The family of this 105-nucleotide RNA from Aotus nancymaae is "Y RNA".
[Rfam]
RNA sequence: GGCUGGUCCAGGACGUACCAUGGUGUUUACAACUAAUUGAUCACGGCAAGUUACAGAUUUAUUUGUUCCUUCUCCACUCCCACUGCUUCACUUGACUGGACUUAA
Dot-bracket structure: (.((((((...((.......(((.(.....(((.((.........................)).)))...........)))).........)))))))).)....
By type it is a non-coding RNA gene. The base pairs follow the family's consensus structure, which is taken from published work.